[Rfam]
RNA sequence: GUAUACGAACCGGCGUCCCCCGCAUUUUGCGCUUGGGAUUUUACGGUUCGGUUUGAAAUCGACAAUCAAAGGAGAAAGAAAGUGGCACGUAUUGCUGGUGUCAACGUUCCCGAU
Numbered sequence: 001g002u003a004u005a006c007g008a009a010c011c012g013g014c015g016u017c018c019c020c021c022g023c024a025u026u027u028u029g030c031g032c033u034u035g036g037g038a039u040u041u042u043a044c045g046g047u048u049c050g051g052u053u054u055g056a057a058a059u060c061g062a063c064a065a066u067c068a069a070a071g072g073a074g075a076a077a078g079a080a081a082g083u084g085g086c087a088c089g090u091a092u093u094g095c096u097g098g099u100g101u102c103a104a105c106g107u108u109c110c111c112g113a114u
Stems, first nucleotide, its partner, number of pairs: 004057001006055008026098002034089002037086001042113001
This 114-nucleotide RNA from Micavibrio aeruginosavorus belongs to the Rfam family "Alpha operon ribosome binding site". For this family Rfam cites "Translational repression of the Escherichia coli alpha operon mRNA: importance of an mRNA conformational switch and a ternary entrapment complex" (Schlax et al., J Biol Chem, 2001). The family's consensus secondary structure is taken from published work. The bacterial alpha operon ribosome binding site is surrounded by this complex pseudoknotted structure. Translation of the mRNA produces 4 ribosomal protein products, one of which (S4) acts as a translational repressor by binding to the nested pseudoknot region. The mechanism of repression is thought to involve a conformational switch in the pseudoknot region and ribosome entrapment. It scores 40 bits against the family's covariance model.